[Rfam]
This 299-nucleotide sequence from Xenopus laevis belongs to the Rfam family "Metazoan signal recognition particle RNA". Rfam links the family to the GO terms SRP-dependent cotranslational protein targeting to membrane, signal sequence recognition and signal recognition particle, endoplasmic reticulum targeting. The match comes from Rfam's covariance-model search (267 bits). Rfam 15.1 lists 383,523 matches to the family in 1,221 species. The family is grouped with related families in Rfam's "SRP clan". For this family Rfam cites "Towards the structure of the mammalian signal recognition particle" (Wild et al., Curr Opin Struct Biol, 2002). Rfam's curators write: The signal recognition particle (SRP) is a universally conserved ribonucleoprotein. It is involved in the co-translational targeting of proteins to membranes. The eukaryotic SRP consists of a 300-nucleotide 7S RNA and six proteins: SRPs 72, 68, 54, 19, 14, and 9.
RNA sequence: GCCGGGCGCUGUGGCGUGUGCCUGUAAUCCAGCUACUUGGAGGCUUGGGCUGUCGGAUCGCUUGAGUCCAGGAGUUCUGGUCUGCACUGAGCUAUGUCGAUCGGGUGUCCGCACUAAGUUUGGUAUCAAUAUGGUGUUCCUGGGGGAGCCUCGGAUCACCAGGUUGCUCUAAGGAGGGGUGAACCGGCCCAGGUCGGAAACGGAGCAGGUCAAAACCCCCGUGCCGAUCAGUAGUGGGACCGCGCCUGUGAAUAGUCCGUGUAGAACAGCCUGAACAACACAGCGAGACACACUCCUUU
Numbered sequence: 001g002c003c004g005g006g007c008g009c010u011g012u013g014g015c016g017u018g019u020g021c022c023u024g025u026a027a028u029c030c031a032g033c034u035a036c037u038u039g040g041a042g043g044c045u046u047g048g049g050c051u052g053u054c055g056g057a058u059c060g061c062u063u064g065a066g067u068c069c070a071g072g073a074g075u076u077c078u079g080g081u082c083u084g085c086a087c088u089g090a091g092c093u094a095u096g097u098c099g100a101u102c103g104g105g106u107g108u109c110c111g112c113a114c115u116a117a118g119u120u121u122g123g124u125a126u127c128a129a130u131a132u133g134g135u136g137u138u139c140c141u142g143g144g145g146g147a148g149c150c151u152c153g154g155a156u157c158a159c160c161a162g163g164u165u166g167c168u169c170u171a172a173g174g175a176g177g178g179g180u181g182a183a184c185c186g187g188c189c190c191a192g193g194u195c196g197g198a199a200a201c202g203g204a205g206c207a208g209g210u211c212a213a214a215a216c217c218c219c220c221g222u223g224c225c226g227a228u229c230a231g232u233a234g235u236g237g238g239a240c241c242g243c244g245c246c247u248g249u250g251a252a253u254a255g256u257c258c259g260u261g262u263a264g265a266a267c268a269g270c271c272u273g274a275a276c277a278a279c280a281c282a283g284c285g286a287g288a289c290a291c292a293c294u295c296c297u298u299u
Stems, first nucleotide, its partner, number of pairs: 001044003004023006028041003047296003051292003058286005066276002069273004077269003081265007089257001091256005097250001102248007109238002112236005118229001120227007127166004132161005138155003142151003168174002176219005186211004194203003